[Rfam]
RNA sequence: UAAAAGGGUUGGUUGGCUAAAUAUGCCACGCUAGCUCUCGUUCAGCUAGUGCCGUAUGGAUAUCGAGACAUAUGGCCGACAUAAUUUGUGGAAAUCAAAUAGGGUUGGCCCGCUUUGGCCGACCCUCUA
Dot-bracket structure: .......(((((.((((.......))))(((((((.........)))))))(((((((..........))))))))))))....................((((((((.(((...)))))))))))...
The record is a 129-nucleotide RNA from Olea europaea, which matches "U11 spliceosomal RNA" in Rfam. Taxonomically the source falls in Olea europaea (Eukaryota, Streptophyta, Tracheophyta, Olea). Pairs were carried over by alignment from the consensus structure, which is taken from published work. A search with the family's covariance model found it, with a score of 71 bits. The family's RNA type in Rfam is spliceosomal small nuclear RNA. The family has 72 seed sequences and 2,595 matches in Rfam 15.1.